[Rfam]
RNA: Small nucleolar RNA SNORA41
Organism: Myotis davidii
RNA sequence: UUCCACUGCGACGGGUCUGCAGCUGUUCACGGUGGCUGUUGUGGCAUUCCUCUGUGGGAAAGAAAUUGUUACACGAUUACACACCUCUGUCUCUGCAAAACAGAGAGUGGGUAUCUGUGUGACAAACACAA
Numbered sequence: 001u002u003c004c005a006c007u008g009c010g011a012c013g014g015g016u017c018u019g020c021a022g023c024u025g026u027u028c029a030c031g032g033u034g035g036c037u038g039u040u041g042u043g044g045c046a047u048u049c050c051u052c053u054g055u056g057g058g059a060a061a062g063a064a065a066u067u068g069u070u071a072c073a074c075g076a077u078u079a080c081a082c083a084c085c086u087c088u089g090u091c092u093c094u095g096c097a098a099a100a101c102a103g104a105g106a107g108u109g110g111g112u113a114u115c116u117g118u119g120u121g122a123c124a125a126a127c128a129c130a131a
Base pairs, nucleotide, nucleotide: 003057004056005055006054017044018043019042020041021040022039023038025036071120072119073118074117075116084111085110086109087107088106090104091103092102